[Rfam]
RNA sequence: AAAAAGGGCUUCUGUCGUGAGUGGCACACGUAGGGCAGCUCGUUUGCUCUACGUGCGGAAUCGUAAUUUUUGCUAAUGGGGCAGCUGGUGAUCGUUGGUCCUGGCGCCCCC
Numbered sequence: 001a002a003a004a005a006g007g008g009c010u011u012c013u014g015u016c017g018u019g020a021g022u023g024g025c026a027c028a029c030g031u032a033g034g035g036c037a038g039c040u041c042g043u044u045u046g047c048u049c050u051a052c053g054u055g056c057g058g059a060a061u062c063g064u065a066a067u068u069u070u071u072g073c074u075a076a077u078g079g080g081g082c083a084g085c086u087g088g089u090g091a092u093c094g095u096u097g098g099u100c101c102u103g104g105c106g107c108c109c110c111c
Stems, first nucleotide, its partner, number of pairs: 008062001010060003013026005027055012079109004084105005090100004
Description: Rfam assigns this 111-nucleotide sequence from Cervus elaphus to the family "U11 spliceosomal RNA". The family's consensus secondary structure is taken from published work. Rfam 15.1 lists 2,595 matches to the family in 1,202 species. For this family Rfam cites "Additional low-abundance human small nuclear ribonucleoproteins: U11, U12, etc" (Montzka and Steitz, Proc Natl Acad Sci U S A, 1988). Taxonomically the source falls in Cervus elaphus (Eukaryota, Mammalia, Laurasiatheria, Cervidae).